[Rfam]
Nucleotides: 170
Base pairs, nucleotide, nucleotide: 001016002015003014004013005012006011028170029169030168032166037162041157042156043155044154045153047152048150049149050148051147052146064145065144066143067142068141073137074136075135077132078131080129081128082127083111084110085109086108089104090103091102092101
Number, partner (000 for none) and nucleotide at each position: 001016g002015u003014g004013c005012c006011a007000g008000u009000a010000a011006u012005g013004g014003u015002a016001u017000a018000g019000a020000u021000g022000a023000a024000g025000g026000a027000a028170g029169u030168g031000g032166u033000g034000u035000a036000a037162c038000g039000a040000a041157g042156u043155u044154c045153u046000u047152g048150a049149g050148c051147c052146u053000a054000c055000g056000a057000a058000c059000a060000g061000a062000a063000a064145c065144u066143u067142g068141a069000u070000a071000a072000g073137g074136c075135g076000a077132u078131u079000a080129g081128g082127u083111g084110g085109g086108u087000g088000a089104g090103g091102u092101u093000g094000c095000a096000u097000a098000g099000c100000a101092a102091a103090u104089c105000u106000a107000a108086g109085c110084c111083c112000a113000a114000a115000a116000g117000g118000u119000a120000a121000a122000c123000g124000u125000a126000a127082a128081c129080c130000g131078a132077a133000g134000u135075u136074g137073u138000a139000a140000a141068u142067c143066a144065a145064g146052a147051g148050g149049u150048u151000g152047u153045g154044g155043a156042a157041u158000g159000a160000a161000a162037g163000a164000u165000u166032a167000g168030u169029g170028u
The record is a 170-nucleotide sequence from Anaeromicropila populeti, which matches "Group II catalytic intron D1-D4-3" in Rfam. The pairing is the family consensus, mapped onto this sequence. Its family is annotated with Group II intron splicing in the Gene Ontology. The match comes from Rfam's covariance-model search (110 bits).